[Rfam]
RNA sequence: UUGGUGUGAAAGACAUGGGUAGUGAGAUGUGCCUCAAUCACCUUGCUACUCUGUCUUUUGCAUUAAG
Numbered sequence: 001u002u003g004g005u006g007u008g009a010a011a012g013a014c015a016u017g018g019g020u021a022g023u024g025a026g027a028u029g030u031g032c033c034u035c036a037a038u039c040a041c042c043u044u045g046c047u048a049c050u051c052u053g054u055c056u057u058u059u060g061c062a063u064u065a066a067g
Stems, first nucleotide, its partner, number of pairs: 008059008017051003021047006028040002
RNA: mir-71 microRNA precursor family